[Rfam]
RNA sequence: AGCUUAAUGGGGAAUGAAGUGCUCCCCGGACCAUAAGGCCCGAACCGCUGGUAAAGCUGAUGACUUCUGCAGGGAU
Numbered sequence: 001a002g003c004u005u006a007a008u009g010g011g012g013a014a015u016g017a018a019g020u021g022c023u024c025c026c027c028g029g030a031c032c033a034u035a036a037g038g039c040c041c042g043a044a045c046c047g048c049u050g051g052u053a054a055a056g057c058u059g060a061u062g063a064c065u066u067c068u069g070c071a072g073g074g075a076u
Stems, first nucleotide, its partner, number of pairs: 010026004016067005047057003
RNA: Fluoride riboswitch aptamer (crcB RNA motif)